[Rfam]
RNA sequence: GGCUCUGUGGCGCAAUGGAUAGCGCAUUGGACUUCUAGCGCUGGCUCGGGAGGCAUUCAAAGGUUGUGGGUUCGAGUCCCACCAGAGUCG
Numbered sequence: 001g002g003c004u005c006u007g008u009g010g011c012g013c014a015a016u017g018g019a020u021a022g023c024g025c026a027u028u029g030g031a032c033u034u035c036u037a038g039c040g041c042u043g044g045c046u047c048g049g050g051a052g053g054c055a056u057u058c059a060a061a062g063g064u065u066g067u068g069g070g071u072u073c074g075a076g077u078c079c080c081a082c083c084a085g086a087g088u089c090g
Base pairs, nucleotide, nucleotide: 001089002088003087004086005085006084007083010025011024012023013022027060028059029058030057031056066082067081068080069079070078
Dot-bracket structure: (((((((..((((........)))).(((((........................))))).....(((((.......)))))))))))).